A member of the RNA family "Small nucleolar RNA SNORD103/SNORD85" from Centropus unirufus, 85 nucleotides long. The source organism's lineage runs through Eukaryota, Amniota, Dinosauria, Centropidae and Centropus. A reference for the family is Vitali et al. (2003), "Identification of 13 novel human modification guide RNAs", Nucleic Acids Res. Rfam links the family to the GO terms RNA processing and nucleolus.

[Rfam]
Nucleotides: 085
Base pairs, nucleotide, nucleotide: 001085002084003083004082005081006080
Number, partner (000 for none) and nucleotide at each position: 001085u002084c003083u004082g005081g006080u007000g008000c009000u010000g011000g012000u013000g014000a015000c016000a017000c018000c019000c020000u021000u022000g023000c024000c025000c026000u027000c028000a029000c030000u031000u032000g033000a034000g035000a036000a037000c038000g039000c040000u041000g042000u043000u044000u045000g046000g047000u048000a049000a050000u051000g052000a053000g054000c055000c056000u057000c058000a059000c060000u061000g062000u063000g064000u065000g066000c067000u068000c069000a070000a071000a072000u073000g074000a075000g076000c077000u078000g079000a080006g081005c082004c083003a084002g085001g